RNA sequence: CCGCUGGGCUGGCGGCGUUGCGGGCCCUGGCCCCGGGACGGCUUUCGCUGCCGACCUUCCUGCCGCCGUGCAGUGACGGCUGCCCAGCCCGGCCCUCUUUGCCGAAGUCCGCAGCCCGGCCGGGGCCCAGGUAAUGCCCAU
Numbered sequence: 001c002c003g004c005u006g007g008g009c010u011g012g013c014g015g016c017g018u019u020g021c022g023g024g025c026c027c028u029g030g031c032c033c034c035g036g037g038a039c040g041g042c043u044u045u046c047g048c049u050g051c052c053g054a055c056c057u058u059c060c061u062g063c064c065g066c067c068g069u070g071c072a073g074u075g076a077c078g079g080c081u082g083c084c085c086a087g088c089c090c091g092g093c094c095c096u097c098u099u100u101g102c103c104g105a106a107g108u109c110c111g112c113a114g115c116c117c118g119g120c121c122g123g124g125g126c127c128c129a130g131g132u133a134a135u136g137c138c139c140a141u
Stems, first nucleotide, its partner, number of pairs: 013017001033087001036084002040081003045076002048073004052068002056065001101126003107120003111116001
Human acetyl-coA cholesterol acyltransferase mRNA: a 141-nucleotide RNA from Sciurus vulgaris. It scores 45 bits against the family's covariance model. By type it is a cis-regulatory element. Rfam links the family to the GO term regulation of translational initiation.